[Rfam]
RNA sequence: GGGUGAUGUCUUCUUACCUUUAUCAAUGAAGGCACUCGGUCAUGCUGUGGGCGUAAAGCCUUAGACGCAAGUCGUCGGGAGUGUGAUGUGAGGAGGGGUUGGAUGCCCC
Numbered sequence: 001g002g003g004u005g006a007u008g009u010c011u012u013c014u015u016a017c018c019u020u021u022a023u024c025a026a027u028g029a030a031g032g033c034a035c036u037c038g039g040u041c042a043u044g045c046u047g048u049g050g051g052c053g054u055a056a057a058g059c060c061u062u063a064g065a066c067g068c069a070a071g072u073c074g075u076c077g078g079g080a081g082u083g084u085g086a087u088g089u090g091a092g093g094a095g096g097g098g099u100u101g102g103a104u105g106c107c108c109c
Stems, first nucleotide, its partner, number of pairs: 001019004007034007035092004039087008049061004064076004095109005
Shown here is a 109-nucleotide sequence from Mesobacillus campisalis, a member of the family "epsC RNA". The base pairs follow the family's consensus structure, which is taken from published work. The family has 30 seed sequences and 450 matches in Rfam 15.1. Taxonomically the source falls in Mesobacillus (Bacteria, Bacillota, Bacilli, Bacillaceae).